[Rfam]
RNA sequence: CUUGAUCGAACCGAUCCACAGCGGGUCGUCGCCGUGCCGCUCCUGGCCGUAGGUGGCCAGCAGCGCCUGCGCCUC
Number, nucleotide and partner (000 for none) at each position: 001c000002u000003u000004g000005a000006u000007c000008g000009a000010a000011c000012c000013g000014a026015u025016c024017c023018a000019c000020a000021g000022c000023g017024g016025g015026u014027c000028g000029u000030c000031g000032c000033c069034g000035u000036g000037c000038c065039g064040c000041u000042c000043c060044u059045g058046g000047c056048c055049g054050u000051a000052g000053g000054u049055g048056g047057c000058c045059a044060g043061c000062a000063g000064c039065g038066c000067c000068u000069g033070c000071g000072c000073c000074u000075c000
RNA: ASpks TB sRNA
Organism: Streptomyces lonarensis